[Rfam]
RNA sequence: AGAUAACAUAAAAUUUCCCUUCGUAUAACCCUAGUAAUAUGGACUGGGGGUCUCUACCAGGAACCAAUAAUUCCUGAUUACGAAGAGUUUAGUGCUUUGG
Numbered sequence: 001a002g003a004u005a006a007c008a009u010a011a012a013a014u015u016u017c018c019c020u021u022c023g024u025a026u027a028a029c030c031c032u033a034g035u036a037a038u039a040u041g042g043a044c045u046g047g048g049g050g051u052c053u054c055u056a057c058c059a060g061g062a063a064c065c066a067a068u069a070a071u072u073c074c075u076g077a078u079u080a081c082g083a084a085g086a087g088u089u090u091a092g093u094g095c096u097u098u099g100g
Base pairs, nucleotide, nucleotide: 019085020084021083022082023081024080025079029049030048031047032046033045034044035043058076059075060074061073062072063071

Rfam assigns this 100-nucleotide sequence from Psychromonas sp. Urea-02u-13 to the family "Purine riboswitch aptamer". Its Rfam clan is "Purine riboswitches". The base pairs follow the family's consensus structure, which is taken from published work.